[Rfam]
A member of the RNA family "Small nucleolar RNA SNORA14" from Salvator merianae, 142 nucleotides long. Rfam links the family to the GO terms RNA processing and nucleolus. The family's consensus secondary structure was predicted with RNAfold. The family's RNA type in Rfam is H/ACA-box small nucleolar RNA. The family has 18 seed sequences and 848 matches in Rfam 15.1. A search with the family's covariance model found it, with a score of 97 bits.
RNA sequence: GUGCAUUCUUUAACCCUCCUGGUACUGUUGCUGUUAUAACUUCCAGGAUAAGGAUGAAUGCAAGAGAAAAAUGUAGAGUUAUCCAAAAUGCAGAAUGAUCUUUUAUAGUUCUGCAUUAUUUCAGCUCUUCAACAAGAAAUGU
Numbered sequence: 001g002u003g004c005a006u007u008c009u010u011u012a013a014c015c016c017u018c019c020u021g022g023u024a025c026u027g028u029u030g031c032u033g034u035u036a037u038a039a040c041u042u043c044c045a046g047g048a049u050a051a052g053g054a055u056g057a058a059u060g061c062a063a064g065a066g067a068a069a070a071a072u073g074u075a076g077a078g079u080u081a082u083c084c085a086a087a088a089u090g091c092a093g094a095a096u097g098a099u100c101u102u103u104u105a106u107a108g109u110u111c112u113g114c115a116u117u118a119u120u121u122c123a124g125c126u127c128u129u130c131a132a133c134a135a136g137a138a139a140u141g142u
Base pairs, nucleotide, nucleotide: 003061004060005059006058009053010052011051017048018047019046020045021044022043024041026039067142072131073130075128076127077126087117088116089115090114091113092112093111095109096108